[Rfam]
Nucleotides: 073
Base pairs, nucleotide, nucleotide: 009065010064011063012062013061014060015059016058017057018056021053022052023051024050025049026048027047029045
Number, partner (000 for none) and nucleotide at each position: 001000u002000c003000a004000c005000g006000g007000u008000u009065c010064a011063u012062u013061a014060u015059u016058a017057c018056u019000u020000u021053u022052g023051g024050u025049a026048c027047g028000c029045g030000c031000u032000a033000u034000g035000c036000c037000a038000c039000u040000c041000u042000c043000a044000a045029c046000u047027c048026g049025u050024a051023c052022c053021g054000u055000g056018a057017g058016u059015a060014a061013u062012a063011g064010u065009g066000c067000a068000c069000u070000g071000u072000g073000a
Record summary:
This 73-nucleotide RNA sequence from Danio rerio belongs to the Rfam family "mir-126 microRNA precursor family". The organism belongs to Danio, within Eukaryota.